[Rfam]
RNA sequence: CUGUCUAAACCCGUAGAUCCGAACUUGUGGUGAAGAGGGCACAAGUUUGACUCUAAGGGGAUAGACCGG
Numbered sequence: 001c002u003g004u005c006u007a008a009a010c011c012c013g014u015a016g017a018u019c020c021g022a023a024c025u026u027g028u029g030g031u032g033a034a035g036a037g038g039g040c041a042c043a044a045g046u047u048u049g050a051c052u053c054u055a056a057g058g059g060g061a062u063a064g065a066c067c068g069g
Stems, first nucleotide, its partner, number of pairs: 003066005010059003015054003020049010
mir-10 microRNA precursor family: a 69-nucleotide sequence from Amphibalanus amphitrite. The match comes from Rfam's covariance-model search (62 bits).